Shown here is a 143-nucleotide RNA sequence from Nitratireductor sp. StC3, a member of the family "Alphaproteobacterial sRNA BjrC1505". The family's RNA type in Rfam is small RNA. The organism belongs to Nitratireductor, within Bacteria. The base pairs follow the family's consensus structure.
[Rfam]
RNA sequence: CUUUCUGUUAACCGGACGUUAAGCUUUAUGGGUGUUUACUAUUUUCAUCCAGUUUUUCUGGAUUCUUACCGAGCGGCUGGGUCUGCUCUGUUUGACGCCUCCCUGUUAAACUCCUGAGAGCCGCUUUGCGCGGCUCUUUUUUU
Numbered sequence: 001c002u003u004u005c006u007g008u009u010a011a012c013c014g015g016a017c018g019u020u021a022a023g024c025u026u027u028a029u030g031g032g033u034g035u036u037u038a039c040u041a042u043u044u045u046c047a048u049c050c051a052g053u054u055u056u057u058c059u060g061g062a063u064u065c066u067u068a069c070c071g072a073g074c075g076g077c078u079g080g081g082u083c084u085g086c087u088c089u090g091u092u093u094g095a096c097g098c099c100u101c102c103c104u105g106u107u108a109a110a111c112u113c114c115u116g117a118g119a120g121c122c123g124c125u126u127u128g129c130g131c132g133g134c135u136c137u138u139u140u141u142u143u
Base pairs, nucleotide, nucleotide: 003041005014015037016036022033024031025030047063048062049061050060071088072087073086074085075084076083094107095106096105097104116138117137118136119135120134121133122132123131124130